[Rfam]
RNA sequence: GGCGAUAAACGGCUGUCGCAAUAAGCCCUUCGGACCCGGGGGCGGUACCCGGCGCCUCCACCCGAGCCCAGAUCGCCCGCGUCGCGGGGCCUGGGUUCCGGUGGGGGCGAAAUAGGAUCGACGGGGGUCUAAAAGGCAGCCUUUCGUCCGGCAUGGUUCCGCCGUUAUCGGGCCGAAUUAUAGUUGCCAACGACAACUAUGCUAUGGACGUCCGCGCGGCUGCGUAA
Numbered sequence: 001g002g003c004g005a006u007a008a009a010c011g012g013c014u015g016u017c018g019c020a021a022u023a024a025g026c027c028c029u030u031c032g033g034a035c036c037c038g039g040g041g042g043c044g045g046u047a048c049c050c051g052g053c054g055c056c057u058c059c060a061c062c063c064g065a066g067c068c069c070a071g072a073u074c075g076c077c078c079g080c081g082u083c084g085c086g087g088g089g090c091c092u093g094g095g096u097u098c099c100g101g102u103g104g105g106g107g108c109g110a111a112a113u114a115g116g117a118u119c120g121a122c123g124g125g126g127g128u129c130u131a132a133a134a135g136g137c138a139g140c141c142u143u144u145c146g147u148c149c150g151g152c153a154u155g156g157u158u159c160c161g162c163c164g165u166u167a168u169c170g171g172g173c174c175g176a177a178u179u180a181u182a183g184u185u186g187c188c189a190a191c192g193a194c195a196a197c198u199a200u201g202c203u204a205u206g207g208a209c210g211u212c213c214g215c216g217c218g219g220c221u222g223c224g225u226a227a
Stems, first nucleotide, its partner, number of pairs: 001148005014138004026127003030124003036052005053109010149164004
The record is a 227-nucleotide sequence from Salinarimonas ramus, which matches "permuted transfer-messenger RNA" in Rfam. Lineage of the source: Bacteria > Pseudomonadota > Alphaproteobacteria > Salinarimonadaceae > Salinarimonas.